RNA sequence: UCUGGGUAGCGUAGCGGCUGCCUGUAACCCGAGCGGGAGUAGGAGAGAUGGAAGCUGGGGCUCCUGCAGAGGACCGUCGGGAUCAUGUUGAAGGCACGUCCACUUGAAGCGUGGAGUCUCUGGUCCGGGCUCCUCCGCGGAAGCGAGAGGAGUCUGGGGAGAUGAUGUGGAAGGCACAGCGUGAGGCGGGCGACCGAGCAGCGAACACUUCCCGCUCUGCGCAGUCGAGGGACAGCGUGCUUGAAUGCUUGCCGACGAUCAUCCCAUGUGAGCAGCUUCCUGCAACCUCUCUC
Numbered sequence: 001u002c003u004g005g006g007u008a009g010c011g012u013a014g015c016g017g018c019u020g021c022c023u024g025u026a027a028c029c030c031g032a033g034c035g036g037g038a039g040u041a042g043g044a045g046a047g048a049u050g051g052a053a054g055c056u057g058g059g060g061c062u063c064c065u066g067c068a069g070a071g072g073a074c075c076g077u078c079g080g081g082a083u084c085a086u087g088u089u090g091a092a093g094g095c096a097c098g099u100c101c102a103c104u105u106g107a108a109g110c111g112u113g114g115a116g117u118c119u120c121u122g123g124u125c126c127g128g129g130c131u132c133c134u135c136c137g138c139g140g141a142a143g144c145g146a147g148a149g150g151a152g153u154c155u156g157g158g159g160a161g162a163u164g165a166u167g168u169g170g171a172a173g174g175c176a177c178a179g180c181g182u183g184a185g186g187c188g189g190g191c192g193a194c195c196g197a198g199c200a201g202c203g204a205a206c207a208c209u210u211c212c213c214g215c216u217c218u219g220c221g222c223a224g225u226c227g228a229g230g231g232a233c234a235g236c237g238u239g240c241u242u243g244a245a246u247g248c249u250u251g252c253c254g255a256c257g258a259u260c261a262u263c264c265c266a267u268g269u270g271a272g273c274a275g276c277u278u279c280c281u282g283c284a285a286c287c288u289c290u291c292u293c
Base pairs, nucleotide, nucleotide: 002039003038004023005022006021007020008019009018010017028037029036030035043293044292045291046290047289048288050287051286054283055282057280058279059278060276061275062274064272065271067270068269071264072263073262075257076256077255078254079253080252082250086244092242093241094240095239096238097237098236099235100231101230103229104228105227106226107225109222110221111220112219113218114217115216116215117214118161119160120159124158125157126156127155128154129153130152131151132150133149134148135147136145137144138143169212170211171210172209173208180203181202182201187196188195189194
Source information: The family of this 293-nucleotide RNA sequence from Marchantia polymorpha is "Plant signal recognition particle RNA". The family's RNA type in Rfam is non-coding RNA gene. Rfam links the family to the GO terms SRP-dependent cotranslational protein targeting to membrane, signal sequence recognition and signal recognition particle, endoplasmic reticulum targeting. NCBI's taxonomy places the organism under Eukaryota, Viridiplantae, Streptophyta, Streptophytina, Marchantia polymorpha.